This 108-nucleotide sequence from Actinidia chinensis belongs to the Rfam family "Small nucleolar RNA snoR97".
RNA sequence: AAAAAAUGGUGGGUGGAGGGUCUGAAAAACUCAGAUACUGUUGUGUUAUCAUCAGCUUCUUAUCUUACUUAUGUCAUGAGACUGGAGUCAAAUAACAACACUACAUUC
Numbered sequence: 001a002a003a004a005a006a007u008g009g010u011g012g013g014u015g016g017a018g019g020g021u022c023u024g025a026a027a028a029a030c031u032c033a034g035a036u037a038c039u040g041u042u043g044u045g046u047u048a049u050c051a052u053c054a055g056c057u058u059c060u061u062a063u064c065u066u067a068c069u070u071a072u073g074u075c076a077u078g079a080g081a082c083u084g085g086a087g088u089c090a091a092a093u094a095a096c097a098a099c100a101c102u103a104c105a106u107u108c
Stems, first nucleotide, its partner, number of pairs: 043101005055088005061081001063079002
Pairs were carried over by alignment from the consensus structure, which was predicted with WAR. Taxonomically the source falls in Actinidia chinensis (Eukaryota, Streptophyta, Embryophyta, asterids). The literature on the family includes a 2002 paper in Curr Biol by Marker et al., "Experimental RNomics: identification of 140 candidates for small non-messenger RNAs in the plant Arabidopsis thaliana". Gene Ontology terms of the family: nucleolus and RNA processing. A search with the family's covariance model found it, with a score of 79 bits. The family's RNA type in Rfam is H/ACA-box small nucleolar RNA.